[Rfam]
RNA sequence: GGGCUGGCUCUAGCUCAGCAGUUCCUUCGAAUGAAUCAUGGUUCAACCACCUUUUCGAGAGUGGGUCAAGACCAGCGAGCGCUCUCCAGCCCUUCA
Numbered sequence: 001g002g003g004c005u006g007g008c009u010c011u012a013g014c015u016c017a018g019c020a021g022u023u024c025c026u027u028c029g030a031a032u033g034a035a036u037c038a039u040g041g042u043u044c045a046a047c048c049a050c051c052u053u054u055u056c057g058a059g060a061g062u063g064g065g066u067c068a069a070g071a072c073c074a075g076c077g078a079g080c081g082c083u084c085u086c087c088a089g090c091c092c093u094u095c096a
Stems, first nucleotide, its partner, number of pairs: 002091006013080004018076002021073001026070002029067002
Notes: Vault RNA: a 96-nucleotide RNA sequence from Phocoena sinus. Rfam classes the family as a non-coding RNA gene. Pairs were carried over by alignment from the consensus structure, which is taken from published work.